RNA sequence: CACUUAUCCAGAGUGGCGGAGGGACAGGCCCUAUGACGCCCGGCAACCAUCAGACAAUCAUGUCUGAUAAGGUGCUAAUUCCUGCAGGAGAUUUUCCUGAAAGAUAAGAG
Numbered sequence: 001c002a003c004u005u006a007u008c009c010a011g012a013g014u015g016g017c018g019g020a021g022g023g024a025c026a027g028g029c030c031c032u033a034u035g036a037c038g039c040c041c042g043g044c045a046a047c048c049a050u051c052a053g054a055c056a057a058u059c060a061u062g063u064c065u066g067a068u069a070a071g072g073u074g075c076u077a078a079u080u081c082c083u084g085c086a087g088g089a090g091a092u093u094u095u096c097c098u099g100a101a102a103g104a105u106a107a108g109a110g
Base pairs, nucleotide, nucleotide: 001110003108004107005106006105007104008103013041015040016039017038021031022030023029025084026083027082028081042076043075044074045073047072048071049068050067051066052065053064054063080102085099086098087097088096089095090094

Shown here is a 110-nucleotide sequence from Salinicoccus roseus, a member of the family "SAM riboswitch aptamer (S box leader)". The source organism's lineage runs through Bacteria, Bacillati, Bacillota, Caryophanales and Salinicoccus. The match comes from Rfam's covariance-model search (94 bits). Rfam describes the family as follows. The SAM riboswitch is found upstream of a number of genes which code for proteins involved in methionine or cysteine biosynthesis in Gram-positive bacteria.